[Rfam]
The family of this 239-nucleotide sequence from Clostridium luticellarii is "T-box leader".
Uncharged tRNA acts as the effector for transcription antitermination of genes in the T-box leader family. T-boxes are found upstream of many aminoacyl-tRNA synthetase genes and some amino acid biosynthetic genes usually in Gram-positive bacteria. The anticodon of a specific tRNA base pairs to a specifier sequence within the T-box motif, and the NCCA acceptor tail of the tRNA base pairs to a conserved bulge in the T-box antiterminator hairpin.
The organism belongs to Clostridium, within Bacteria.
RNA sequence: AGAAAUACUUUGAAAAAGAAAAGUAGCUUAAAUGAAGUUUUACAGAGAGAAAACUGUAUGCUGAGAAGUUUUUUUACGGAGUUUAAGUGAAGUGCUCUUUGGAGUUAUGAGCCGAAUUAGUAGUAGGCUGCAUCGGGUUCACCCGUUACAGUGAUAGGACAUAGCGCUGUGUCCGAUUGUGAGUGGGUUUUUAGAAACCAAAAAGAGUGGGACCACGGAGGAUCGACUUCGUCUCUAUA
Numbered sequence: 001a002g003a004a005a006u007a008c009u010u011u012g013a014a015a016a017a018g019a020a021a022a023g024u025a026g027c028u029u030a031a032a033u034g035a036a037g038u039u040u041u042a043c044a045g046a047g048a049g050a051a052a053a054c055u056g057u058a059u060g061c062u063g064a065g066a067a068g069u070u071u072u073u074u075u076a077c078g079g080a081g082u083u084u085a086a087g088u089g090a091a092g093u094g095c096u097c098u099u100u101g102g103a104g105u106u107a108u109g110a111g112c113c114g115a116a117u118u119a120g121u122a123g124u125a126g127g128c129u130g131c132a133u134c135g136g137g138u139u140c141a142c143c144c145g146u147u148a149c150a151g152u153g154a155u156a157g158g159a160c161a162u163a164g165c166g167c168u169g170u171g172u173c174c175g176a177u178u179g180u181g182a183g184u185g186g187g188u189u190u191u192u193a194g195a196a197a198c199c200a201a202a203a204a205g206a207g208u209g210g211g212a213c214c215a216c217g218g219a220g221g222a223u224c225g226a227c228u229u230c231g232u233c234u235c236u237a238u239a
Stems, first nucleotide, its partner, number of pairs: 007105002015100004026088006038076001049073006108132002110129004134145003186199005204236004215232005
By type it is a cis-regulatory leader. The family has 48 seed sequences and 19,395 matches in Rfam 15.1.